[Rfam]
RNA: int-alpA RNA
RNA sequence: UCCGGGGAUAGAGCGACGGCUCGAAAGCCGGCUUUCCUGGGCCGGCCCUCCCCGGAUCAAGUAUCCAGGA
Dot-bracket structure: ((((((((..((((....))))....(((((...[[[[[[.)))))..))))))))........]]]]]]